[Rfam]
The family of this 98-nucleotide sequence from Clostridium celatum is "Purine riboswitch aptamer". The match comes from Rfam's covariance-model search (66 bits). NCBI's taxonomy places the organism under Bacteria, Bacillati, Clostridia, Clostridium, Clostridium celatum. Riboswitches are metabolite binding domains within certain messenger RNAs that serve as precision sensors for their corresponding targets. Pairs were carried over by alignment from the consensus structure, which is taken from published work.
RNA sequence: AACACGAACAAUAGAACAACUCAUAUGAACCCCAGAUGUGGUGGGGUGUUUCUACCGGAAGCCGUAAAUUUCCGACUAUGAGUGAAUUUAGUGCAAGC
Number, nucleotide and partner (000 for none) at each position: 001a000002a000003c000004a000005c000006g000007a000008a000009c000010a000011a000012u000013a000014g000015a000016a000017c000018a000019a083020c082021u081022c080023a079024u078025a077026u000027g000028a000029a047030c046031c045032c044033c043034a042035g000036a000037u000038g000039u000040g000041g000042u034043g033044g032045g031046g030047u029048g000049u000050u000051u000052c000053u000054a000055c000056c074057g073058g072059a071060a070061g069062c000063c000064g000065u000066a000067a000068a000069u061070u060071u059072c058073c057074g056075a000076c000077u025078a024079u023080g022081a021082g020083u019084g000085a000086a000087u000088u000089u000090a000091g000092u000093g000094c000095a000096a000097g000098c000